RNA: Guanidine-I riboswitch aptamer
RNA sequence: AAAUAAGGUCACUAGGGUUCCGGUCCGCGUUUUGCGGAUGGCUGGUCCGAGAGUGACCGACCGCCCUCUGGCGGUUACACGGCGGGAUAAAAGCCCGGGAGGC
Dot-bracket structure: ......((((((..((...(((((((((.....))))))..).)).))....))))))(((((((....))))))).(.[...(((.......))).)..]..
Numbered sequence: 001a002a003a004u005a006a007g008g009u010c011a012c013u014a015g016g017g018u019u020c021c022g023g024u025c026c027g028c029g030u031u032u033u034g035c036g037g038a039u040g041g042c043u044g045g046u047c048c049g050a051g052a053g054u055g056a057c058c059g060a061c062c063g064c065c066c067u068c069u070g071g072c073g074g075u076u077a078c079a080c081g082g083c084g085g086g087a088u089a090a091a092a093g094c095c096c097g098g099g100a101g102g103c
Stems, first nucleotide, its partner, number of pairs: 007058006015048002020045002022042001023039006059076007078098001080101001084096003